[Rfam]
RNA sequence: AUAGCAGACUGGCCAUAGCAGAGGUGCUCACAUUGCAGCCCUGCCAGAUUCUAAUGAACAUGCAAAUUCAGCU
Numbered sequence: 001a002u003a004g005c006a007g008a009c010u011g012g013c014c015a016u017a018g019c020a021g022a023g024g025u026g027c028u029c030a031c032a033u034u035g036c037a038g039c040c041c042u043g044c045c046a047g048a049u050u051c052u053a054a055u056g057a058a059c060a061u062g063c064a065a066a067u068u069c070a071g072c073u
Stems, first nucleotide, its partner, number of pairs: 011040003017073003021069003024036003045062002049058003
The record is a 73-nucleotide RNA from Alligator mississippiensis, which matches "Mammalian CPEB3 ribozyme" in Rfam. Pairs were carried over by alignment from the consensus structure, which is taken from published work. From the family's description: The mammalian CPEB3 ribozyme is a self cleaving RNA located in the second intron of the CPEB3 gene which belongs to a family of genes regulating messenger RNA polyadenylation. Taxonomically the source falls in Alligator (Eukaryota, Deuterostomia, Tetrapoda, Alligatorinae).